RNA sequence: UCGCCUGACAAACCUUCACGGCAGCAGCGGGAGAACCACAUCCGGGCGACCUCACGGUCGCCCUCGGGGUGAAGCCGUCCCUGGACGGCAGGCCAACACUUCUCGGCCUAAUCCGACAGCUCAUCUCGCAGGCUGGAGAGGUAGACGAU
Number, nucleotide and partner (000 for none) at each position: 001u000002c000003g133004c132005c131006u000007g000008a000009c000010a000011a000012a000013c000014c000015u000016u000017c000018a000019c000020g000021g000022c000023a000024g000025c000026a000027g129028c128029g127030g126031g125032a124033g000034a000035a000036c000037c066038a000039c000040a000041u000042c000043c000044g000045g000046g000047c000048g000049a000050c000051c000052u000053c000054a000055c000056g000057g000058u000059c000060g000061c000062c000063c000064u000065c000066g037067g114068g113069g112070u000071g000072a000073a000074g000075c088076c087077g086078u085079c000080c000081c000082u000083g000084g000085a078086c077087g076088g075089c000090a000091g108092g107093c106094c105095a000096a000097c000098a000099c000100u000101u000102c000103u000104c000105g094106g093107c092108c091109u000110a000111a000112u069113c068114c067115g000116a000117c000118a000119g000120c000121u000122c000123a000124u032125c031126u030127c029128g028129c027130a000131g005132g004133c003134u000135g000136g000137a000138g000139a000140g000141g000142u000143a000144g000145a000146c000147g000148a000149u000
RNA: c-di-AMP riboswitch aptamer (ydaO/yuaA leader)
Organism: Isoptericola dokdonensis